[Rfam]
RNA sequence: AGCACAACAACAACAACUAUUCGUAUAAUUCCGGGGAUUGGCCUGGAAGUCUCUACGAGGUCACCGUAAUGGCCUGGCUACGAUUAAGAAGAGCAAACCU
Numbered sequence: 001a002g003c004a005c006a007a008c009a010a011c012a013a014c015a016a017c018u019a020u021u022c023g024u025a026u027a028a029u030u031c032c033g034g035g036g037a038u039u040g041g042c043c044u045g046g047a048a049g050u051c052u053c054u055a056c057g058a059g060g061u062c063a064c065c066g067u068a069a070u071g072g073c074c075u076g077g078c079u080a081c082g083a084u085u086a087a088g089a090a091g092a093g094c095a096a097a098c099c100u
Stems, first nucleotide, its partner, number of pairs: 018086002021083005029048007058075006
The family of this 100-nucleotide RNA sequence from Paenibacillus monticola is "Purine riboswitch aptamer". It scores 66 bits against the family's covariance model.